[Rfam]
Nucleotides: 109
Stems, first nucleotide, its partner, number of pairs: 007096004011060003016054001017031005038053005065090004071084004
Number, partner (000 for none) and nucleotide at each position: 001000g002000c003000c004000c005000c006000c007096g008095c009094u010093c011060c012059g013058g014000g015000g016054u017031g018030c019029a020028c021027g022000u023000a024000u025000g026000g027021c028020g029019u030018g031017c032000u033000g034000a035000g036000a037000u038053g039052g040051c041050g042049a043000a044000c045000c046000u047000g048000a049042u050041c051040g052039c053038c054016g055000g056000a057000a058013c059012c060011g061000c062000g063000a064000a065090c066089u067088u068087g069000a070000u071084c072083u073082g074081g075000g076000u077000c078000a079000u080000a081074c082073c083072a084071g085000c086000g087068u088067a089066a090065g091000a092000a093010g094009a095008g096007c097000u098000g099000c100000a101000g102000u103000g104000c105000c106000g107000u108000g109000g
This 109-nucleotide RNA from Pseudorhodoferax sp. Leaf274 belongs to the Rfam family "TPP riboswitch aptamer (THI element)". Pairs were carried over by alignment from the consensus structure, which is taken from published work. It scores 62 bits against the family's covariance model. The organism belongs to Pseudorhodoferax, within Bacteria.